[Rfam]
RNA sequence: AUACGGCGCUUUUAACGACACACACGUUUCGUCACAUGCGGUGGGGUCUCAUUAAUGAGUACCGCAUGGGAAGCGUGGAGGCUUAAC
Numbered sequence: 001a002u003a004c005g006g007c008g009c010u011u012u013u014a015a016c017g018a019c020a021c022a023c024a025c026g027u028u029u030c031g032u033c034a035c036a037u038g039c040g041g042u043g044g045g046g047u048c049u050c051a052u053u054a055a056u057g058a059g060u061a062c063c064g065c066a067u068g069g070g071a072a073g074c075g076u077g078g079a080g081g082c083u084u085a086a087c
Base pairs, nucleotide, nucleotide: 023077024076025075026074027073028072029071030070035068036067037066038065039064040063041062042061043060048059049058050057051056
A member of the RNA family "t44 RNA" from Legionella jordanis, 87 nucleotides long. This family consists of a number of bacterial RNA genes of between 135 and 170 bases in length. The t44 gene has been identified in several species of enteric bacteria but homologs have also been identified in Pseudomonas and Coxiella species. The t44 gene is found between the map and rpsB genes in all species in the full alignment apart from Shigella flexneri. The function of this RNA is unknown. The source organism's lineage runs through Bacteria, Gammaproteobacteria, Legionellales, Legionellaceae and Legionella. By type it is a small RNA.